[Rfam]
Nucleotides: 100
Base pairs, nucleotide, nucleotide: 002099003098004097005096006095007094008093013044015043016042017041018040022033023032024031027076028075029074030073045068046067047066048065050064051063052060054059072092077089078088079087080086
Number, partner (000 for none) and nucleotide at each position: 001000a002099u003098c004097u005096u006095a007094u008093u009000a010000a011000g012000a013044g014000u015043a016042g017041g018040u019000g020000g021000a022033g023032g024031g025000a026000a027076u028075u029074g030073g031024c032023c033022c034000a035000a036000a037000g038000a039000a040018a041017c042016c043015u044013c045068a046067g047066c048065a049000a050064c051063a052060g053000g054059c055000a056000a057000c058000c059054g060052u061000a062000c063051u064050g065048u066047g067046c068045u069000a070000a071000a072092u073030c074029c075028a076027a077089c078088a079087a080086g081000c082000a083000u084000g085000a086080c087079u088078u089077g090000g091000a092072a093008g094007a095006u096005a097004a098003g099002a100000a